[Rfam]
RNA sequence: AGCUUUGCGCAGUGGCAGUAUCGUAGCCAAUGAGAUUUAUCCAAGGCACGAUUAUUGCUAAUUGAAAACUUUUCCCGGCCGGCGCCGCGGCUCACUAGGCUAAUCCUCUGCCUGCGGCGCCGGCACCUUGGGUUCUAGUCCCUGUUGGGG
Numbered sequence: 001a002g003c004u005u006u007g008c009g010c011a012g013u014g015g016c017a018g019u020a021u022c023g024u025a026g027c028c029a030a031u032g033a034g035a036u037u038u039a040u041c042c043a044a045g046g047c048a049c050g051a052u053u054a055u056u057g058c059u060a061a062u063u064g065a066a067a068a069c070u071u072u073u074c075c076c077g078g079c080c081g082g083c084g085c086c087g088c089g090g091c092u093c094a095c096u097a098g099g100c101u102a103a104u105c106c107u108c109u110g111c112c113u114g115c116g117g118c119g120c121c122g123g124c125a126c127c128u129u130g131g132g133u134u135c136u137a138g139u140c141c142c143u144g145u146u147g148g149g150g
Base pairs, nucleotide, nucleotide: 020052021051022050023049024048026047027046028045034042078124079123080122081121082120083119084118085117086116087115088114089113090112139150140149141148142147
The family of this 150-nucleotide sequence from Oryctolagus cuniculus is "U4 spliceosomal RNA". It is annotated as a spliceosomal small nuclear RNA. Pairs were carried over by alignment from the consensus structure, which is taken from published work. Clan: U4 clan. The organism belongs to Oryctolagus, within Eukaryota. It scores 74 bits against the family's covariance model.